RNA sequence: UUCUUAUCCAGAGAGGUGGAGGGGCAGGCCCUUAGAAACCUCGGCAACAGGUUCGUUAUUGGAACACUGUGCCAAAUCCUGCGGGACAACAAAUGUUGUAACCCGAAAGAUAAGGA
Numbered sequence: 001u002u003c004u005u006a007u008c009c010a011g012a013g014a015g016g017u018g019g020a021g022g023g024g025c026a027g028g029c030c031c032u033u034a035g036a037a038a039c040c041u042c043g044g045c046a047a048c049a050g051g052u053u054c055g056u057u058a059u060u061g062g063a064a065c066a067c068u069g070u071g072c073c074a075a076a077u078c079c080u081g082c083g084g085g086a087c088a089a090c091a092a093a094u095g096u097u098g099u100a101a102c103c104c105g106a107a108a109g110a111u112a113a114g115g116a
Base pairs, nucleotide, nucleotide: 001116002115003114004113005112006111007110008109013042014041015040016039017038021031022030023029025081026080027079028078043073044072045071046070048069049068051065052064053063054062077108082105083104084103085102
Shown here is a 116-nucleotide RNA sequence from Gracilibacillus kekensis, a member of the family "SAM riboswitch aptamer (S box leader)". Lineage of the source: Bacteria > Bacillati > Bacillota > Caryophanales > Gracilibacillus. A search with the family's covariance model found it, with a score of 89 bits. The family's consensus secondary structure is taken from published work. Rfam links the family to the GO term regulation of gene expression.